A member of the RNA family "Small nucleolar RNA SNORA71" from Oryctolagus cuniculus, 133 nucleotides long.
RNA sequence: CCCUGCAUUCGAAAGUGAUCGUGGGCUGCCCGUGCCCUGGUCAUUGAUAGUGCAGGGAGAGCAGCUGCUGAAAGCGCUUCCCCGUGUUUGGAGGGUCCGCGCCGUCCCUGCCGAACCCUGGAGCGUUCGCACA
Dot-bracket structure: (((((((((....((((((((.((((.......))))))))))))...))))))))).........(.((((.((..........(((((.((((..........))))..)))))......)).)))))...
The family's consensus secondary structure was predicted with PFOLD. Rfam links the family to the GO terms RNA processing and nucleolus. From the family's description: The members of this family belong to the H/ACA class of snoRNAs which bind a number of proteins (including dyskerin, Gar1p and Nop10p) to form snoRNP complexes. This class of snoRNAs are thought to guide the sites of modification of uridines to pseudouridines by forming direct base pairing interactions with substrate RNAs. This family includes U71 (SNORA71), ACA39 (SNORA39) and ACA60 (SNORA60). U71 and ACA60 are predicted to guide the pseudouridylation of U406 and U1004 in 18S rRNA respectively.